[Rfam]
RNA sequence: CUCAACUCUGCUCGAGUGAGGUAGAGUCGUGGUGCUGCGUCACCACGAAGUCAUCAGUUUUAGGAAAAUUUGAU
Numbered sequence: 001c002u003c004a005a006c007u008c009u010g011c012u013c014g015a016g017u018g019a020g021g022u023a024g025a026g027u028c029g030u031g032g033u034g035c036u037g038c039g040u041c042a043c044c045a046c047g048a049a050g051u052c053a054u055c056a057g058u059u060u061u062a063g064g065a066a067a068a069u070u071u072g073a074u
Base pairs, nucleotide, nucleotide: 002073003072004071005070009065011063012062014060015059016058017056018055019054021052027048028047029046030045031044